RNA sequence: GGCCGGGCAGCGCGCAUCGAUACAAGACCCGAAAGGGGAAACAUGCGGGCCGAUCUGCGGGCGGUGUUCAAGUGCCCGGCCGCCCUGCU
Numbered sequence: 001g002g003c004c005g006g007g008c009a010g011c012g013c014g015c016a017u018c019g020a021u022a023c024a025a026g027a028c029c030c031g032a033a034a035g036g037g038g039a040a041a042c043a044u045g046c047g048g049g050c051c052g053a054u055c056u057g058c059g060g061g062c063g064g065u066g067u068u069c070a071a072g073u074g075c076c077c078g079g080c081c082g083c084c085c086u087g088c089u
Base pairs, nucleotide, nucleotide: 001081002080003079004078005077006076007075008074009073013047014046015045016044028037029036030035049065050064051063052062
The record is an 89-nucleotide RNA sequence from Cupriavidus necator, which matches "sRNA-Xcc1" in Rfam. Rfam 15.1 lists 421 matches to the family in 299 species. Rfam's curators put it in the seed alignment. The family's RNA type in Rfam is small RNA.